Rfam assigns this 84-nucleotide sequence from Sinocyclocheilus anshuiensis to the family "Small nucleolar RNA SNORD11B".
[Rfam]
RNA sequence: UCCAAGCUGUGAUGAUGACGACCUUUGUGUCAUAUUGCUGAAAAAUCAUGAAGCCUUUUUGUCACUACCUCAUCUGAGCUUGUG
Numbered sequence: 001u002c003c004a005a006g007c008u009g010u011g012a013u014g015a016u017g018a019c020g021a022c023c024u025u026u027g028u029g030u031c032a033u034a035u036u037g038c039u040g041a042a043a044a045a046u047c048a049u050g051a052a053g054c055c056u057u058u059u060u061g062u063c064a065c066u067a068c069c070u071c072a073u074c075u076g077a078g079c080u081u082g083u084g
Stems, first nucleotide, its partner, number of pairs: 003082005

Annotation:
The family's consensus secondary structure was predicted with WAR. On this family, see Yang et al., Nucleic Acids Res 2006: "snoSeeker: an advanced computational package for screening of guide and orphan snoRNA genes in the human genome". It scores 54 bits against the family's covariance model. The family is grouped with related families in Rfam's "SNORD11 clan".